[Rfam]
RNA sequence: CCAAUGUUAAUCUCGUACAUGGGGCGUACAUGCUGGGUGCUUGUCACUCCCUUCACCCCGGGAAGGUCUGAGGAAAGGUCUUUGUGUUUUUAAUACAUCCUAGCAGGAUGCUUCCUCUAUAAGGAAGGCGAGGGAACCAGAAAUUACGAUGCUGUGCCGAGCUGAGGAAGCCUGACAAGUUGGUUAAGGUGGAGGCGUAGUCACAGUGUUGUUGGAAACCCUUGUGACCAGCAAUUUUAGCACAAUCUACGAGAUGGCUAUGGUCAUAACUCAAUUCAGACUAGUCUUUCAUUGG
Numbered sequence: 001c002c003a004a005u006g007u008u009a010a011u012c013u014c015g016u017a018c019a020u021g022g023g024g025c026g027u028a029c030a031u032g033c034u035g036g037g038u039g040c041u042u043g044u045c046a047c048u049c050c051c052u053u054c055a056c057c058c059c060g061g062g063a064a065g066g067u068c069u070g071a072g073g074a075a076a077g078g079u080c081u082u083u084g085u086g087u088u089u090u091u092a093a094u095a096c097a098u099c100c101u102a103g104c105a106g107g108a109u110g111c112u113u114c115c116u117c118u119a120u121a122a123g124g125a126a127g128g129c130g131a132g133g134g135a136a137c138c139a140g141a142a143a144u145u146a147c148g149a150u151g152c153u154g155u156g157c158c159g160a161g162c163u164g165a166g167g168a169a170g171c172c173u174g175a176c177a178a179g180u181u182g183g184u185u186a187a188g189g190u191g192g193a194g195g196c197g198u199a200g201u202c203a204c205a206g207u208g209u210u211g212u213u214g215g216a217a218a219c220c221c222u223u224g225u226g227a228c229c230a231g232c233a234a235u236u237u238u239a240g241c242a243c244a245a246u247c248u249a250c251g252a253g254a255u256g257g258c259u260a261u262g263g264u265c266a267u268a269a270c271u272c273a274a275u276u277c278a279g280a281c282u283a284g285u286c287u288u289u290c291a292u293u294g295g
Stems, first nucleotide, its partner, number of pairs: 001295004009287001012253006021059004035049005068279005077229004096110005111127006128225007147211003254267005
Shown here is a 295-nucleotide RNA from Pararge aegeria, a member of the family "Nuclear RNase P". The family's RNA type in Rfam is ribozyme. It scores 140 bits against the family's covariance model. Clan: RNaseP clan. Rfam links the family to the GO terms ribonuclease P complex, tRNA processing and ribonuclease P activity. Pairs were carried over by alignment from the consensus structure, which is taken from published work.